[Rfam]
RNA: Alphaproteobacterial sRNA ar35
Organism: Rhizobium sp. RU20A
RNA sequence: CGCAGCAUUGCUAGUGAGCGCUGAAAUGAUUUCGUUGCUCGCGAUGCGAUUUCGCUGAUCGGCUUCCGACCACGGAUGUACUGGCUGAGGUGAAUGGCGAAAUGAGGAAGGUCGGUGCGAUUUCGCCCCGGCCUUUUUUGUU
Numbered sequence: 001c002g003c004a005g006c007a008u009u010g011c012u013a014g015u016g017a018g019c020g021c022u023g024a025a026a027u028g029a030u031u032u033c034g035u036u037g038c039u040c041g042c043g044a045u046g047c048g049a050u051u052u053c054g055c056u057g058a059u060c061g062g063c064u065u066c067c068g069a070c071c072a073c074g075g076a077u078g079u080a081c082u083g084g085c086u087g088a089g090g091u092g093a094a095u096g097g098c099g100a101a102a103u104g105a106g107g108a109a110g111g112u113c114g115g116u117g118c119g120a121u122u123u124c125g126c127c128c129c130g131g132c133c134u135u136u137u138u139u140g141u142u
Base pairs, nucleotide, nucleotide: 003048005047006046007045008044009043016040017039018038019037020036051101052100053099054098055097056096057095060092062091063090064089068085070084071083072082102141103140104139105138106137107136108135109134110133111132112131113130114129115128117126118125119124